[Rfam]
The family of this 78-nucleotide RNA sequence from Esox lucius is "mir-9/mir-79 microRNA precursor family". Rfam links the family to the GO terms RISC complex and miRNA-mediated post-transcriptional gene silencing. It scores 61 bits against the family's covariance model. Rfam 15.1 lists 5,647 matches to the family in 934 species.
RNA sequence: UAAUUUCUACUUUCGGUUAUCUAGCUUUAUGACAGGUAUUUAACACUCAUACAGCUAGAUAACCAAAGACAGAAUCCA
Numbered sequence: 001u002a003a004u005u006u007c008u009a010c011u012u013u014c015g016g017u018u019a020u021c022u023a024g025c026u027u028u029a030u031g032a033c034a035g036g037u038a039u040u041u042a043a044c045a046c047u048c049a050u051a052c053a054g055c056u057a058g059a060u061a062a063c064c065a066a067a068g069a070c071a072g073a074a075u076c077c078a
Base pairs, nucleotide, nucleotide: 001078005074007072008071011068012067013066015064016063017062018061019060020059021058022057023056024055025054026053028051029050030049031048032047